[Rfam]
RNA sequence: GAUUUUAUUCAAUUGCUGGUAUUAUUUUUUAAUAUUAGAGGAAAGUCCUUCCUAACACAAUCUGCGAUGAUUGUAGUGUUUGAGUCUUUAGAAACAAAGAACAAUUAUUAUAAAUAAUUGAUGACUAGUGCCACAGAGACGAGUAAUGUGAAACGCGGUAAACUCCUCAAGUUAGCAACCCAAAUUUUGGUAGGGGCAUUAAGAGAUGAUAAAUGAAUCAAAUCUUAAAUCUUUUUUAAAAAAAGAUAGAUAAAUAAUUGAACUAGACAGAAGAAGGCUUACAAAA
Numbered sequence: 001g002a003u004u005u006u007a008u009u010c011a012a013u014u015g016c017u018g019g020u021a022u023u024a025u026u027u028u029u030u031a032a033u034a035u036u037a038g039a040g041g042a043a044a045g046u047c048c049u050u051c052c053u054a055a056c057a058c059a060a061u062c063u064g065c066g067a068u069g070a071u072u073g074u075a076g077u078g079u080u081u082g083a084g085u086c087u088u089u090a091g092a093a094a095c096a097a098a099g100a101a102c103a104a105u106u107a108u109u110a111u112a113a114a115u116a117a118u119u120g121a122u123g124a125c126u127a128g129u130g131c132c133a134c135a136g137a138g139a140c141g142a143g144u145a146a147u148g149u150g151a152a153a154c155g156c157g158g159u160a161a162a163c164u165c166c167u168c169a170a171g172u173u174a175g176c177a178a179c180c181c182a183a184a185u186u187u188u189g190g191u192a193g194g195g196g197c198a199u200u201a202a203g204a205g206a207u208g209a210u211a212a213a214u215g216a217a218u219c220a221a222a223u224c225u226u227a228a229a230u231c232u233u234u235u236u237u238a239a240a241a242a243a244a245g246a247u248a249g250a251u252a253a254a255u256a257a258u259u260g261a262a263c264u265a266g267a268c269a270g271a272a273g274a275a276g277g278c279u280u281a282c283a284a285a286a
Stems, first nucleotide, its partner, number of pairs: 004286003008262007016038006043280003047277005052175005057074006080170005085100005101122001102120008123165002128163002130159003179195003199228006229247006
Rfam assigns this 286-nucleotide RNA to the family "Bacterial RNase P class B". For this family Rfam cites "The Ribonuclease P Database" (Brown, Nucleic Acids Res, 1999). Rfam classes the family as a ribozyme. A search with the family's covariance model found it, with a score of 177 bits. About the family: Ribonuclease P (RNase P) is a ubiquitous endoribonuclease, found in archaea, bacteria and eukarya as well as chloroplasts and mitochondria. The family is grouped with related families in Rfam's "RNaseP clan".